[Rfam]
RNA sequence: CGAGGCUUGGAAUCAAGAUGCUGUGGGCCUCGCCAGCGUUGAACUGGUGAUCACGGGGAUCUCCAUACACCAGUCGGUAUAGCCGCGCCACUCUAAAGUAGGCCGCCGGGGGUAGCUCGCCAUCGCCCCGGUGCUCCGAAUUUUAUGUGAGUGGACGCGCCGCACGCCGUGGAGGGGUGAAGCAUGUUGGACUUGCUUCAGAAGGUGCGGAACGCCG
Numbered sequence: 001c002g003a004g005g006c007u008u009g010g011a012a013u014c015a016a017g018a019u020g021c022u023g024u025g026g027g028c029c030u031c032g033c034c035a036g037c038g039u040u041g042a043a044c045u046g047g048u049g050a051u052c053a054c055g056g057g058g059a060u061c062u063c064c065a066u067a068c069a070c071c072a073g074u075c076g077g078u079a080u081a082g083c084c085g086c087g088c089c090a091c092u093c094u095a096a097a098g099u100a101g102g103c104c105g106c107c108g109g110g111g112g113u114a115g116c117u118c119g120c121c122a123u124c125g126c127c128c129c130g131g132u133g134c135u136c137c138g139a140a141u142u143u144u145a146u147g148u149g150a151g152u153g154g155a156c157g158c159g160c161c162g163c164a165c166g167c168c169g170u171g172g173a174g175g176g177g178u179g180a181a182g183c184a185u186g187u188u189g190g191a192c193u194u195g196c197u198u199c200a201g202a203a204g205g206u207g208c209g210g211a212a213c214g215c216c217g
Base pairs, nucleotide, nucleotide: 001032002031003030004029005028006027007026043074044073045072046071047070048069062173063172064171065170066169084159085158086157087156089153090152091151092150093149160210161209162208163207164206165205178200179199180198181197182196183195184194